[Rfam]
RNA: Glycine riboswitch aptamer
Organism: Macrococcus sp. DPC7161
RNA sequence: AUGAGAAUGGUUAGAGAGCAUGAUUAAAUUCAUCGCCGAAGGUGCAAGCAUUGCGAAACUCUCAGGCAAAAGGAUAACCAUUUGACG
Numbered sequence: 001a002u003g004a005g006a007a008u009g010g011u012u013a014g015a016g017a018g019c020a021u022g023a024u025u026a027a028a029u030u031c032a033u034c035g036c037c038g039a040a041g042g043u044g045c046a047a048g049c050a051u052u053g054c055g056a057a058a059c060u061c062u063c064a065g066g067c068a069a070a071a072g073g074a075u076a077a078c079c080a081u082u083u084g085a086c087g
Base pairs, nucleotide, nucleotide: 006082007081008080009079010078011077012076013075020033021032022031023030035067036066037065038063039062042061044059048054049053